Record summary
This 53-nucleotide RNA belongs to the Rfam family "L31-Actinobacteria ribosomal protein leader". Clan: Ribosomal Protein L31 Leader clan. On this family, see Eckert and Weinberg, BMC Microbiol 2020: "Discovery of 20 novel ribosomal leader candidates in bacteria and archaea".
[Rfam]
RNA sequence: GCGGUACCGGUUCACGUUCUGCUGGCUCUGCCAGCUAGGGCGACCCGGCGACC
Number, nucleotide and partner (000 for none) at each position: 001g000002c000003g053004g052005u051006a000007c048008c047009g046010g045011u000012u000013c000014a000015c042016g041017u040018u039019c038020u037021g035022c034023u033024g032025g031026c030027u000028c000029u000030g026031c025032c024033a023034g022035c021036u000037a020038g019039g018040g017041c016042g015043a000044c000045c010046c009047g008048g007049c000050g000051a005052c004053c003